[Rfam]
RNA sequence: CGCUAUUCCUGGGGGAGCCCACACGGGCUGAGACUCCGCCACACCGGCGGUAACCCUUAGAACCUGAUCCGGGUAAUGCCGGCGAAGGGAAGGAAACGAAGGAUCCU
Numbered sequence: 001c002g003c004u005a006u007u008c009c010u011g012g013g014g015g016a017g018c019c020c021a022c023a024c025g026g027g028c029u030g031a032g033a034c035u036c037c038g039c040c041a042c043a044c045c046g047g048c049g050g051u052a053a054c055c056c057u058u059a060g061a062a063c064c065u066g067a068u069c070c071g072g073g074u075a076a077u078g079c080c081g082g083c084g085a086a087g088g089g090a091a092g093g094a095a096a097c098g099a100a101g102g103a104u105c106c107u
Base pairs, nucleotide, nucleotide: 006095007094008093009092010091011057012056013055014054016051017028018027019026020025035050036049039046063088064087065086069082070081071080072079
RNA: TPP riboswitch aptamer (THI element)